The family of this 138-nucleotide RNA sequence from Coregonus sp. 'balchen' is "Small nucleolar RNA SNORA22". It is annotated as an H/ACA-box small nucleolar RNA. Rfam describes the family as follows. ACA22 is a member of the H/ACA class of snoRNA that guide the sites of modification of uridines to pseudouridines. It scores 84 bits against the family's covariance model. Lineage of the source: Eukaryota > Metazoa > Deuterostomia > Euteleosteomorpha > Coregonus. Gene Ontology terms of the family: nucleolus and RNA processing.
RNA sequence: UUGCACAGAGAACACCCACGGAUGCUUGUGUAGCUCUCCCUGGUCUCCAUAUCUGUGCUACAGUGAAGUGUGGUCUGUUACCUCUGCAUUGGGGGAGCUGCCUUCUCUCCUACAUGUAUUCAGCGGACCAGCACAACU
Number, nucleotide and partner (000 for none) at each position: 001u000002u000003g058004c057005a056006c055007a054008g053009a000010g052011a000012a000013c000014a000015c000016c043017c042018a041019c000020g039021g000022a037023u000024g034025c033026u032027u000028g000029u000030g000031u000032a026033g025034c024035u000036c000037u022038c000039c020040c000041u018042g017043g016044u000045c000046u000047c000048c000049a000050u000051a000052u010053c008054u007055g006056u005057g004058c003059u000060a076061c000062a074063g000064u072065g071066a000067a000068g000069u000070g000071u065072g064073g000074u062075c000076u060077g000078u000079u000080a000081c000082c000083u000084c123085u122086g121087c116088a115089u114090u000091g111092g110093g109094g108095g107096a106097g105098c000099u000100g000101c000102c000103u000104u000105c097106u096107c095108u094109c093110c092111u091112a000113c000114a089115u088116g087117u000118a000119u000120u000121c086122a085123g084124c000125g000126g000127a000128c000129c000130a000131g000132c000133a000134c000135a000136a000137c000138u000